Shown here is a 187-nucleotide sequence from Panthera tigris, a member of the family "Small Cajal body specific RNA 16".
RNA sequence: ACGGUCCGGGGAAAGGCUCCCGUGUUGCUGAACCUGCCCGGUUGUGGGUACAGCCUUGUACCAGGCAGUCCGAUCCUGACCUCAGUAAAUUACCAGCAACAGUUUUUUUCUGGGGUUUGAAUUUGCAAUAAUGGGCGUGAACAUUCUAGCCGCAGUUUGAUGAUCACGUGUGAUACUGCAAAUAGGA
Numbered sequence: 001a002c003g004g005u006c007c008g009g010g011g012a013a014a015g016g017c018u019c020c021c022g023u024g025u026u027g028c029u030g031a032a033c034c035u036g037c038c039c040g041g042u043u044g045u046g047g048g049u050a051c052a053g054c055c056u057u058g059u060a061c062c063a064g065g066c067a068g069u070c071c072g073a074u075c076c077u078g079a080c081c082u083c084a085g086u087a088a089a090u091u092a093c094c095a096g097c098a099a100c101a102g103u104u105u106u107u108u109u110c111u112g113g114g115g116u117u118u119g120a121a122u123u124u125g126c127a128a129u130a131a132u133g134g135g136c137g138u139g140a141a142c143a144u145u146c147u148a149g150c151c152g153c154a155g156u157u158u159g160a161u162g163a164u165c166a167c168g169u170g171u172g173a174u175a176c177u178g179c180a181a182a183u184a185g186g187a
Stems, first nucleotide, its partner, number of pairs: 003081004008076003015070004019065002022062001024061002027054004032049003093113002096109001098107002122182006129175002132172002138166003142162004148157003
Description
Taxonomically the source falls in Panthera tigris (Eukaryota, Deuterostomia, Teleostomi, Laurasiatheria). It scores 160 bits against the family's covariance model. For this family Rfam cites "Cajal body-specific small nuclear RNAs: a novel class of 2'-O-methylation and pseudouridylation guide RNAs" (Darzacq et al., EMBO J, 2002). Gene Ontology terms of the family: RNA processing and nucleolus. From the family's description: scaRNAs are a specific class of small nuclear RNAs which localise to the Cajal bodies and guide the modification of RNA polymerase II transcribed spliceosomal RNAs U1, U2, U4, U5 and U12. ACA47 belongs to the H/ACA box class of guide RNAs as it has the predicted hairpin-hinge-hairpin-tail structure, the conserved H/ACA-box motifs and is found associated with GAR1. ACA47 is predicted to guide the pseudouridylation of residue U5 of the U1 spliceosomal snRNA.